[Rfam]
RNA sequence: UGAAUUUACGCCAAACAAAGUUGAUUUAAGACUGUGUUUGGUGGUGAAUUUUUUAGGGAAAUCAGACAGCGGCCAGACAACCGUAGAGAUGGAUUCCACAGAUGACUGAAUUUUCAAUUUUGGUUGUCUACUGAUUCCAUUCUCACAUUU
Numbered sequence: 001u002g003a004a005u006u007u008a009c010g011c012c013a014a015a016c017a018a019a020g021u022u023g024a025u026u027u028a029a030g031a032c033u034g035u036g037u038u039u040g041g042u043g044g045u046g047a048a049u050u051u052u053u054u055a056g057g058g059a060a061a062u063c064a065g066a067c068a069g070c071g072g073c074c075a076g077a078c079a080a081c082c083g084u085a086g087a088g089a090u091g092g093a094u095u096c097c098a099c100a101g102a103u104g105a106c107u108g109a110a111u112u113u114u115c116a117a118u119u120u121u122g123g124u125u126g127u128c129u130a131c132u133g134a135u136u137c138c139a140u141u142c143u144c145a146c147a148u149u150u
Stems, first nucleotide, its partner, number of pairs: 002051001005047002009043009019033004086144003089140005104125006
small nucleolar RNA snoR143: a 150-nucleotide sequence from Camellia sinensis.
The source organism's lineage runs through Eukaryota, Streptophyta, Embryophyta, Pentapetalae and Camellia.
The literature on the family includes a 2009 paper in Nucleic Acids Res by Chen and Wu, "Mining small RNA sequencing data: a new approach to identify small nucleolar RNAs in Arabidopsis".